Shown here is a 130-nucleotide RNA from Campylobacter lari, a member of the family "purD RNA motif". The family's consensus secondary structure is taken from published work. NCBI's taxonomy places the organism under Bacteria, Epsilonproteobacteria, Campylobacteraceae, Campylobacter, Campylobacter lari. The literature on the family includes a 2007 paper in Nucleic Acids Res by Weinberg et al., "Identification of 22 candidate structured RNAs in bacteria using the CMfinder comparative genomics pipeline".

Nucleotides: 130
Stems, first nucleotide, its partner, number of pairs: 003073007018059005024053004034047004087105007
Number, partner (000 for none) and nucleotide at each position: 001000g002000u003073g004072u005071g006070a007069u008068u009067u010000a011000c012000c013000g014000u015000g016000u017000u018059c019058u020057g021056u022055g023000a024053c025052u026051u027050c028000g029000u030000u031000u032000g033000a034047g035046u036045u037044u038000u039000g040000a041000a042000a043000a044037a045036a046035g047034c048000g049000a050027g051026a052025a053024g054000c055022u056021g057020c058019a059018g060000c061000c062000u063000u064000u065000a066000a067009a068008a069007a070006u071005c072004a073003c074000c075000u076000a077000a078000u079000g080000g081000c082000a083000u084000a085000c086000u087105u088104u089103g090102a091101c092100u093099u094000u095000u096000u097000g098000a099093g100092g101091g102090u103089c104088a105087g106000a107000c108000a109000c110000u111000u112000a113000u114000a115000c116000u117000c118000c119000g120000g121000c122000c123000a124000u125000u126000u127000g128000g129000g130000u